[Rfam]
RNA sequence: AAAUUCUUAUCGCUUAAUUUCCGCCAUCGUGCGGAAAGCGGGGGAACCACAAGGGAAGCCUGAGCUGCCGGUGUGAGAGCCGAAAGCCAUGCGUCCCCGGGGUGAAUCCUCAUCGUGCAUGUAUAACAUGCACUGGGGUAGGGCGACUCUCACCGCCCGAAUCCGUCAGCUAACCUCGUCAGCGUUGGAUCGAACAGCC
Numbered sequence: 001a002a003a004u005u006c007u008u009a010u011c012g013c014u015u016a017a018u019u020u021c022c023g024c025c026a027u028c029g030u031g032c033g034g035a036a037a038g039c040g041g042g043g044g045a046a047c048c049a050c051a052a053g054g055g056a057a058g059c060c061u062g063a064g065c066u067g068c069c070g071g072u073g074u075g076a077g078a079g080c081c082g083a084a085a086g087c088c089a090u091g092c093g094u095c096c097c098c099g100g101g102g103u104g105a106a107u108c109c110u111c112a113u114c115g116u117g118c119a120u121g122u123a124u125a126a127c128a129u130g131c132a133c134u135g136g137g138g139u140a141g142g143g144c145g146a147c148u149c150u151c152a153c154c155g156c157c158c159g160a161a162u163c164c165g166u167c168a169g170c171u172a173a174c175c176u177c178g179u180c181a182g183c184g185u186u187g188g189a190u191c192g193a194a195c196a197g198c199c
Base pairs, nucleotide, nucleotide: 011184012183013182014181018037019036020035021034022033023032024031038179039178040177041176042175043174048099100164101163102162108138109137110136111135141158142157143156144155

The record is a 199-nucleotide RNA sequence from Paenibacillus tyrphae, which matches "c-di-AMP riboswitch aptamer (ydaO/yuaA leader)" in Rfam.
The source organism's lineage runs through Bacteria, Bacillota, Bacilli, Caryophanales and Paenibacillus.